[Rfam]
RNA: U7 small nuclear RNA
Organism: Triplophysa tibetana
RNA sequence: GAGAACUUCUCUCUUUAGUAUUUGUCGAGCAGGUUUCCUUUAAAAGGGAACCCAC
Numbered sequence: 001g002a003g004a005a006c007u008u009c010u011c012u013c014u015u016u017a018g019u020a021u022u023u024g025u026c027g028a029g030c031a032g033g034u035u036u037c038c039u040u041u042a043a044a045a046g047g048g049a050a051c052c053c054a055c
Stems, first nucleotide, its partner, number of pairs: 032052008